The record is a 165-nucleotide RNA sequence from Clostridium sp. AM58-1XD, which matches "azaaromatic riboswitch aptamer (yjdF RNA)" in Rfam. The family's consensus secondary structure is taken from published work. It scores 57 bits against the family's covariance model.
RNA sequence: AUAUACAAAGAUAAAAACACAACGUACAGGCGAAUGAAAGAGCCUGGACAGAUCCGGCUGGUAGUCCGGACGUGCAUAGGGCAGAGCAGCACUUUCAGAGCAUGCAUGAUCAGCCCAUGCAUAAGUAACCCUCCUCCUUGGUCGUCCCUUCUUUGUUCAUUACAC
Dot-bracket structure: ....(((((((.........................................(((((........))))).((((((.......................................))))))..........((.....))........))))))).........